[Rfam]
RNA sequence: UGGCGCCCAACGUGGGGCCUGGAAACGAGGGACUCCAUGAGGAAGAGGACGCCAAAGGACGGUCGAACCCAGACAAAAGGUGUAAAACUCUUCCGAUCUCCGCGGGAACCUGCCACAUCAGAAUCGAAGGUAAGUGGCGCAUCCGAAAUGGGACAAGAAUUAAGUCAGCAUCAGAUCUAUGUAGGACAAUUAAAAGAGGCUUUAAAGAUACGAGGAGUAAAGGUUAAAGGUAAUGAUUUGUUUAAGUUUUUUGAUUUUGUAAAAGACACUUGCCCUU
Numbered sequence: 001u002g003g004c005g006c007c008c009a010a011c012g013u014g015g016g017g018c019c020u021g022g023a024a025a026c027g028a029g030g031g032a033c034u035c036c037a038u039g040a041g042g043a044a045g046a047g048g049a050c051g052c053c054a055a056a057g058g059a060c061g062g063u064c065g066a067a068c069c070c071a072g073a074c075a076a077a078a079g080g081u082g083u084a085a086a087a088c089u090c091u092u093c094c095g096a097u098c099u100c101c102g103c104g105g106g107a108a109c110c111u112g113c114c115a116c117a118u119c120a121g122a123a124u125c126g127a128a129g130g131u132a133a134g135u136g137g138c139g140c141a142u143c144c145g146a147a148a149u150g151g152g153a154c155a156a157g158a159a160u161u162a163a164g165u166c167a168g169c170a171u172c173a174g175a176u177c178u179a180u181g182u183a184g185g186a187c188a189a190u191u192a193a194a195a196g197a198g199g200c201u202u203u204a205a206a207g208a209u210a211c212g213a214g215g216a217g218u219a220a221a222g223g224u225u226a227a228a229g230g231u232a233a234u235g236a237u238u239u240g241u242u243u244a245a246g247u248u249u250u251u252u253g254a255u256u257u258u259g260u261a262a263a264a265g266a267c268a269c270u271u272g273c274c275c276u277u
Stems, first nucleotide, its partner, number of pairs: 006031003012026002036048001038046001087131003091128002097123001098121002102116001104114002139154001142152004161204003164200003211253008221239006262277002265274001267272001